A member of the RNA family "MIR159 microRNA precursor family" from Cuscuta europaea, 197 nucleotides long. Lineage of the source: Eukaryota > Viridiplantae > Magnoliopsida > Cuscuta > Cuscuta subgen. Cuscuta. Pairs were carried over by alignment from the consensus structure, which was predicted with WAR.
[Rfam]
RNA sequence: AUAAAGAAGAGGGAGCUCCCUUCAGUCCAAUCAAAAGGAGAAGAAAGAUGAAACUAGUCUCCCGCAUCAUUCACACAUUCACAGUAGCAACUAAGCUCCAUGCAUCUCCUAAUGUGUUUGAAUGAAUGAGUCGGCAACUAAUUCAAACCCUCCCUCUUACCCUGAUUGGACACAAGGAAGCUCUCUCAUCUCCGGCC
Numbered sequence: 001a002u003a004a005a006g007a008a009g010a011g012g013g014a015g016c017u018c019c020c021u022u023c024a025g026u027c028c029a030a031u032c033a034a035a036a037g038g039a040g041a042a043g044a045a046a047g048a049u050g051a052a053a054c055u056a057g058u059c060u061c062c063c064g065c066a067u068c069a070u071u072c073a074c075a076c077a078u079u080c081a082c083a084g085u086a087g088c089a090a091c092u093a094a095g096c097u098c099c100a101u102g103c104a105u106c107u108c109c110u111a112a113u114g115u116g117u118u119u120g121a122a123u124g125a126a127u128g129a130g131u132c133g134g135c136a137a138c139u140a141a142u143u144c145a146a147a148c149c150c151u152c153c154c155u156c157u158u159a160c161c162c163u164g165a166u167u168g169g170a171c172a173c174a175a176g177g178a179a180g181c182u183c184u185c186u187c188a189u190c191u192c193c194g195g196c197c
Stems, first nucleotide, its partner, number of pairs: 013183005019177002025171005060136001062134003068128004076120001